The record is a 199-nucleotide sequence from Oryza rufipogon, which matches "MIR1435 microRNA precursor family" in Rfam. Gene Ontology terms of the family: RISC complex and miRNA-mediated post-transcriptional gene silencing. Rfam 15.1 lists 1,765 matches to the family in 31 species.
RNA sequence: UGACUUUGGUCAAAGUCAAACUGCUUUAAUUUGACCAAGUUUAUAGAAAAAAGUAGUAGUAUUUUCAACCCAACACAAAUUUAUUAUGAAAAUAUAUUCAAUUAUUGAUUUGAUGACACUAAUUUAGUAUUAUAAAUAUUACUACAUUUGUCUAUAAAUUUAGUCAAACUUAAAACAGUUUGACUUUGACCAAAGUCAA
Numbered sequence: 001u002g003a004c005u006u007u008g009g010u011c012a013a014a015g016u017c018a019a020a021c022u023g024c025u026u027u028a029a030u031u032u033g034a035c036c037a038a039g040u041u042u043a044u045a046g047a048a049a050a051a052a053g054u055a056g057u058a059g060u061a062u063u064u065u066c067a068a069c070c071c072a073a074c075a076c077a078a079a080u081u082u083a084u085u086a087u088g089a090a091a092a093u094a095u096a097u098u099c100a101a102u103u104a105u106u107g108a109u110u111u112g113a114u115g116a117c118a119c120u121a122a123u124u125u126a127g128u129a130u131u132a133u134a135a136a137u138a139u140u141a142c143u144a145c146a147u148u149u150g151u152c153u154a155u156a157a158a159u160u161u162a163g164u165c166a167a168a169c170u171u172a173a174a175a176c177a178g179u180u181u182g183a184c185u186u187u188g189a190c191c192a193a194a195g196u197c198a199a
Base pairs, nucleotide, nucleotide: 005194006193007192008191009190011188012187013186014185015184016183017182018181019180020179021178022177023176025174026173031167032166033165034164035163044154045153046152047151049149050148051147054144055143056142058140059139060138061137062136063135064134067131071127073125075123
Background
Lineage of the source: Eukaryota > Streptophytina > Spermatophyta > Petrosaviidae > Oryza.